[Rfam]
RNA sequence: ACACGAAAGAUAAUCGCUGGUUGCUUAGACAACUAGAGGAAAGUCCAUGCUCGCACCAUCUGUGAUGAUGGUAGUGUUUGUGCUUAACGAAACGAUAAGUUAAGGCAUAGAGGCAUCUAUGACGGCUGACCGGACUCCUAAGGGAAACUAUGGACGAAGGCUUUAAAAGUGCCACAGUGACGAAGUUUUCAUGGAAACGUGAAAAGUGGAACGUUGGUAAACCCCAUAAGCGAGAAACCCAAAUUUGGUAGGGGAACUUAUACAAUCGAAUGAAGAAGAACGUAUAGGACGUGAUGAAAUUGCGUAGAGAAAUGAUUAUCAUUAACAGAACAUGGCUUAUUG
Numbered sequence: 001a002c003a004c005g006a007a008a009g010a011u012a013a014u015c016g017c018u019g020g021u022u023g024c025u026u027a028g029a030c031a032a033c034u035a036g037a038g039g040a041a042a043g044u045c046c047a048u049g050c051u052c053g054c055a056c057c058a059u060c061u062g063u064g065a066u067g068a069u070g071g072u073a074g075u076g077u078u079u080g081u082g083c084u085u086a087a088c089g090a091a092a093c094g095a096u097a098a099g100u101u102a103a104g105g106c107a108u109a110g111a112g113g114c115a116u117c118u119a120u121g122a123c124g125g126c127u128g129a130c131c132g133g134a135c136u137c138c139u140a141a142g143g144g145a146a147a148c149u150a151u152g153g154a155c156g157a158a159g160g161c162u163u164u165a166a167a168a169g170u171g172c173c174a175c176a177g178u179g180a181c182g183a184a185g186u187u188u189u190c191a192u193g194g195a196a197a198c199g200u201g202a203a204a205a206g207u208g209g210a211a212c213g214u215u216g217g218u219a220a221a222c223c224c225c226a227u228a229a230g231c232g233a234g235a236a237a238c239c240c241a242a243a244u245u246u247g248g249u250a251g252g253g254g255a256a257c258u259u260a261u262a263c264a265a266u267c268g269a270a271u272g273a274a275g276a277a278g279a280a281c282g283u284a285u286a287g288g289a290c291g292u293g294a295u296g297a298a299a300u301u302g303c304g305u306a307g308a309g310a311a312a313u314g315a316u317u318a319u320c321a322u323u324a325a326c327a328g329a330a331c332a333u334g335g336c337u338u339a340u341u342g
Stems, first nucleotide, its partner, number of pairs: 008340001009320007017036006041338003045335005050234005055072006078229005083104006105123001106121006124224002128162001130160001136154003142149002169222002171218003186205008238253003257288007289305006